[Rfam]
RNA sequence: UUCGCAGCGCGUGUUUCAGCACGAUGUUGGGAAAGCUCACCCCCUUGAGCCGGGCGGUGCGGAUGUAUUGCGCGGUCAUCACCUCGGCCAUCGAGGCGCGCGUCAUCCGUGCGAUAUAGCCCAUGCCGUAAAGCGCGAUGGUCAACACCGGCAGGAAGAAAUUCUCGAAUGAUGGAUUC
Numbered sequence: 001u002u003c004g005c006a007g008c009g010c011g012u013g014u015u016u017c018a019g020c021a022c023g024a025u026g027u028u029g030g031g032a033a034a035g036c037u038c039a040c041c042c043c044c045u046u047g048a049g050c051c052g053g054g055c056g057g058u059g060c061g062g063a064u065g066u067a068u069u070g071c072g073c074g075g076u077c078a079u080c081a082c083c084u085c086g087g088c089c090a091u092c093g094a095g096g097c098g099c100g101c102g103u104c105a106u107c108c109g110u111g112c113g114a115u116a117u118a119g120c121c122c123a124u125g126c127c128g129u130a131a132a133g134c135g136c137g138a139u140g141g142u143c144a145a146c147a148c149c150g151g152c153a154g155g156a157a158g159a160a161a162u163u164c165u166c167g168a169a170u171g172a173u174g175g176a177u178u179c
Stems, first nucleotide, its partner, number of pairs: 005140002008137005014131002016128001019126003028123004038113001040111001042109001046105003051100002054097001055075001057073006082096005147177001148175003152171002154165004
Shown here is a 179-nucleotide RNA from Roseovarius sp. A46, a member of the family "Ruegeria cis52 sRNA". Gene Ontology term of the family: regulation of gene expression. Lineage of the source: Bacteria > Pseudomonadati > Rhodobacterales > Roseobacteraceae > Roseovarius. Rfam classes the family as a small RNA. The family's consensus secondary structure was predicted with RNAfold.